A member of the RNA family "Nuclear RNase P" from Trametes pubescens, 393 nucleotides long.
Rfam classes the family as a ribozyme.
The match comes from Rfam's covariance-model search (55 bits).
[Rfam]
RNA sequence: ACAGCACCAAAGCCGCGAUGCUCACACCGCACAGGACGCCCUCGCGCGUCCGCCCUCGUGAGCGGGCUAAGGUCUGAGCAUUCCAAUCCCUCUCGAUCGACUCUAGCCGGGUCCGGUCUUAACAAACCGAGCGUCGCACCAGAAACUCAGUCCGCGCUGGGGUCGCAAGACUCCCCUUCGGGGCCCCGGAGAAGCGCCUCGGCGUCGAGGGGUGGCCAGCGGACUUUGGGAGACGGCGCAGGGAUCGGGCGCGUACUCGCCCCCUCGUCGGCCUGCGACUCGCUCGCAGGCUGAAAGGGUGUGCGCGUGCGCCGUCCUUUAGUGCACUUCGCGGCUCGCGUCCAUGGGGCCUCGCGCCCCUGCGAAACUCGAUUCAGACUACUCUGGUGCUGU
Number, nucleotide and partner (000 for none) at each position: 001a393002c392003a391004g390005c000006a000007c387008c386009a385010a000011a000012g335013c334014c333015g332016c331017g330018a329019u000020g063021c062022u061023c060024a059025c000026a000027c000028c000029g000030c000031a000032c000033a000034g051035g050036a049037c048038g047039c046040c000041c000042u000043c000044g000045c000046g039047c038048g037049u036050c035051c034052g000053c000054c000055c000056u000057c000058g000059u024060g023061a022062g021063c020064g000065g000066g000067c000068u000069a000070a000071g000072g000073u000074c377075u376076g375077a374078g373079c000080a000081u000082u244083c243084c242085a000086a000087u000088c000089c000090c000091u000092c000093u000094c000095g000096a000097u000098c000099g113100a112101c111102u110103c109104u000105a000106g000107c000108c000109g103110g102111g101112u100113c099114c129115g128116g127117u126118c000119u124120u000121a000122a000123c000124a119125a000126a117127c116128c115129g114130a000131g239132c238133g237134u236135c235136g234137c000138a000139c000140c000141a000142g000143a000144a000145a000146c000147u000148c000149a225150g224151u223152c222153c221154g220155c219156g000157c000158u000159g000160g000161g000162g000163u000164c000165g000166c000167a000168a000169g000170a000171c000172u000173c000174c000175c000176c000177u000178u000179c000180g000181g000182g000183g000184c000185c000186c000187c000188g000189g000190a000191g000192a000193a000194g000195c000196g000197c000198c000199u000200c000201g000202g000203c000204g000205u000206c000207g000208a000209g000210g000211g000212g000213u000214g000215g000216c000217c000218a000219g155220c154221g153222g152223a151224c150225u149226u000227u000228g000229g000230g000231a000232g000233a000234c136235g135236g134237c133238g132239c131240a000241g000242g084243g083244a082245u000246c000247g000248g000249g000250c000251g000252c000253g000254u000255a000256c000257u000258c000259g000260c000261c000262c000263c000264c000265u000266c000267g000268u000269c000270g000271g000272c000273c000274u000275g000276c000277g000278a000279c000280u000281c000282g000283c000284u000285c000286g000287c000288a000289g000290g000291c000292u000293g000294a000295a000296a000297g000298g000299g000300u000301g000302u000303g000304c000305g000306c000307g000308u000309g000310c000311g000312c000313c000314g000315u000316c000317c000318u000319u000320u000321a000322g000323u000324g000325c000326a000327c000328u000329u018330c017331g016332c015333g014334g013335c012336u365337c364338g363339c362340g361341u000342c000343c000344a000345u000346g000347g000348g000349g000350c000351c000352u000353c000354g000355c000356g000357c000358c000359c000360c000361u340362g339363c338364g337365a336366a000367a000368c000369u000370c000371g000372a000373u078374u077375c076376a075377g074378a000379c000380u000381a000382c000383u000384c000385u009386g008387g007388u000389g000390c004391u003392g002393u001